[Rfam]
RNA sequence: UUUUUCGCUUUAUACCUUGACGACGCGGGUAGCUAGCGAAUAAAGGAAUUUUGCCGGAUAGCACAUACACGCAGCAAUGGCGUAAGACGUAUUGUGACAUCAGGCAUUUAGCGGGCUGCGGGUUGCAGCCUGGACGAAUAAGACGGGAUUGAUUCUCUCUGGUGAUUCAGUAGCGGUUCCCCCUCGUAAAAGCGCUGUUUUUUCCGUAUGAAAAACAGGCUGCCGAGAUUUUGCGCCCCUUGAGCCACCGACAACCGUGAGGUUGACGGUUUUGCGAUGAGACACGGGGCCAUCGGUUGUUCCUCGUCCAGCGUUACCAUGCCCGUAGCUUUGUCACUAA
Numbered sequence: 001u002u003u004u005u006c007g008c009u010u011u012a013u014a015c016c017u018u019g020a021c022g023a024c025g026c027g028g029g030u031a032g033c034u035a036g037c038g039a040a041u042a043a044a045g046g047a048a049u050u051u052u053g054c055c056g057g058a059u060a061g062c063a064c065a066u067a068c069a070c071g072c073a074g075c076a077a078u079g080g081c082g083u084a085a086g087a088c089g090u091a092u093u094g095u096g097a098c099a100u101c102a103g104g105c106a107u108u109u110a111g112c113g114g115g116c117u118g119c120g121g122g123u124u125g126c127a128g129c130c131u132g133g134a135c136g137a138a139u140a141a142g143a144c145g146g147g148a149u150u151g152a153u154u155c156u157c158u159c160u161g162g163u164g165a166u167u168c169a170g171u172a173g174c175g176g177u178u179c180c181c182c183c184u185c186g187u188a189a190a191a192g193c194g195c196u197g198u199u200u201u202u203u204c205c206g207u208a209u210g211a212a213a214a215a216c217a218g219g220c221u222g223c224c225g226a227g228a229u230u231u232u233g234c235g236c237c238c239c240u241u242g243a244g245c246c247a248c249c250g251a252c253a254a255c256c257g258u259g260a261g262g263u264u265g266a267c268g269g270u271u272u273u274g275c276g277a278u279g280a281g282a283c284a285c286g287g288g289g290c291c292a293u294c295g296g297u298u299g300u301u302c303c304u305c306g307u308c309c310a311g312c313g314u315u316a317c318c319a320u321g322c323c324c325g326u327a328g329c330u331u332u333g334u335c336a337c338u339a340a
Stems, first nucleotide, its partner, number of pairs: 004040005013031005052106004057101002062096004069090003074081002113331011131310007145181004153173002156170001191221003195218004201213004222297005235290005249268002252265005

Source information: This 340-nucleotide RNA sequence from [Pantoea] beijingensis belongs to the Rfam family "RNase E 5' UTR element". This family represents a conserved element found in the 5' UTR of RNase E mRNA. RNase E is a key regulatory enzyme in the pathway of mRNA degradation in E. coli that is able to auto-regulate the degradation of its own mRNA in response to changes in RNase E activity. This rne 5' UTR element acts as a sensor of cellular RNase E concentration enabling tight regulation of RNase E concentration and synthesis. The family's consensus secondary structure is taken from published work. For this family Rfam cites "An evolutionarily conserved RNA stem-loop functions as a sensor that directs feedback regulation of RNase E gene expression" (Diwa et al., Genes Dev, 2000). By type it is a cis-regulatory element. The match comes from Rfam's covariance-model search (222 bits).